[Rfam]
RNA sequence: CUGCAGUCAAUUAAGCCAACUGAGUUCCUCUGCUGGUGGGUGCCCAGUGUGCAGUGGCUGCAAACAGCAAUCUCCUCGGUAGCAUAUAUGGCCUGUUGCUUGUAUGGGGUGCCCUAAGGAACCUUGGAGACACCC
Numbered sequence: 001c002u003g004c005a006g007u008c009a010a011u012u013a014a015g016c017c018a019a020c021u022g023a024g025u026u027c028c029u030c031u032g033c034u035g036g037u038g039g040g041u042g043c044c045c046a047g048u049g050u051g052c053a054g055u056g057g058c059u060g061c062a063a064a065c066a067g068c069a070a071u072c073u074c075c076u077c078g079g080u081a082g083c084a085u086a087u088a089u090g091g092c093c094u095g096u097u098g099c100u101u102g103u104a105u106g107g108g109g110u111g112c113c114c115u116a117a118g119g120a121a122c123c124u125u126g127g128a129g130a131c132a133c134c135c
Stems, first nucleotide, its partner, number of pairs: 002053004019048004025042001027040002078123003089111002092108003
Dot-bracket structure: .((((.............((((..(.((..........)).)..)))).))))........................(((........((.(((...........))).)).........)))............